[Rfam]
RNA sequence: GCAUGGAUGAAUUCUGCACUAGCUUUCCUCAGUAGCUGAUGCAGUCAGACACCAUGCCAGAGCAAAUUCCUUUUUUCUCCACUGUGCCUGGUGUGCUUGUUUUAUGGGAACGAGCAUGCCCUUGGUAGGGGAAUACAUCA
Numbered sequence: 001g002c003a004u005g006g007a008u009g010a011a012u013u014c015u016g017c018a019c020u021a022g023c024u025u026u027c028c029u030c031a032g033u034a035g036c037u038g039a040u041g042c043a044g045u046c047a048g049a050c051a052c053c054a055u056g057c058c059a060g061a062g063c064a065a066a067u068u069c070c071u072u073u074u075u076u077c078u079c080c081a082c083u084g085u086g087c088c089u090g091g092u093g094u095g096c097u098u099g100u101u102u103u104a105u106g107g108g109a110a111c112g113a114g115c116a117u118g119c120c121c122u123u124g125g126u127a128g129g130g131g132a133a134u135a136c137a138u139c140a
Stems, first nucleotide, its partner, number of pairs: 001057006014044005071133003075130004080125001087124001090120009